[Rfam]
RNA sequence: CUGUUUGCAGGUGCAGCAUCUUCAAGAUUCACAAUAUUAUUGAGAGGCCUCCUUUGAUUUACUCAGGGACUUGAGAAUCUUGAUGAUGCUGCAUCAGCAAUAAG
Numbered sequence: 001c002u003g004u005u006u007g008c009a010g011g012u013g014c015a016g017c018a019u020c021u022u023c024a025a026g027a028u029u030c031a032c033a034a035u036a037u038u039a040u041u042g043a044g045a046g047g048c049c050u051c052c053u054u055u056g057a058u059u060u061a062c063u064c065a066g067g068g069a070c071u072u073g074a075g076a077a078u079c080u081u082g083a084u085g086a087u088g089c090u091g092c093a094u095c096a097g098c099a100a101u102a103a104g
Base pairs, nucleotide, nucleotide: 010095011094012093013092014091015090016089017088018087019086020085022083023082024081025080026079027078028077029076030075032073033072
Dot-bracket structure: .........(((((((((((.(((((((((.((......................................)).))))))))).))))))))))).........

This 104-nucleotide RNA sequence from Asparagus officinalis belongs to the Rfam family "mir-172 microRNA precursor family". mir-172 has been experimentally verified in Arabidopsis thaliana. The literature on the family includes a 2004 paper in Mol Cell by Jones-Rhoades and Bartel, "Computational Identification of Plant MicroRNAs and Their Targets, Including a Stress-Induced miRNA". Rfam links the family to the GO terms miRNA-mediated post-transcriptional gene silencing and RISC complex. The family has 11 seed sequences and 2,076 matches in Rfam 15.1.